RNA sequence: AUGAAGUUUACGGGAGAUAAGCAACAGCUUGGCCGAAGGGGCAUAAACUCUCAGGCGCUGAAGACAUGGG
Numbered sequence: 001a002u003g004a005a006g007u008u009u010a011c012g013g014g015a016g017a018u019a020a021g022c023a024a025c026a027g028c029u030u031g032g033c034c035g036a037a038g039g040g041g042c043a044u045a046a047a048c049u050c051u052c053a054g055g056c057g058c059u060g061a062a063g064a065c066a067u068g069g070g
Stems, first nucleotide, its partner, number of pairs: 006065004011060003019030004032056003035052002039050003